[Rfam]
RNA sequence: UUGUGAAAUGAUGGCAAUCAUCUUUCGGGACUGACCUGACAUGAAGAGAAUACAAAAAAAAAAAAAAGCACAUGUUACUA
Numbered sequence: 001u002u003g004u005g006a007a008a009u010g011a012u013g014g015c016a017a018u019c020a021u022c023u024u025u026c027g028g029g030a031c032u033g034a035c036c037u038g039a040c041a042u043g044a045a046g047a048g049a050a051u052a053c054a055a056a057a058a059a060a061a062a063a064a065a066a067a068g069c070a071c072a073u074g075u076u077a078c079u080a
Base pairs, nucleotide, nucleotide: 001080003078004077005076006075
Dot-bracket structure: (.((((....................................................................)))).)
The record is an 80-nucleotide sequence from Hipposideros armiger, which matches "Small nucleolar RNA SNORD2" in Rfam. Gene Ontology terms of the family: nucleolus and RNA processing. Lineage of the source: Eukaryota > Metazoa > Craniata > Euteleostomi > Hipposideros. By type it is a C/D-box small nucleolar RNA.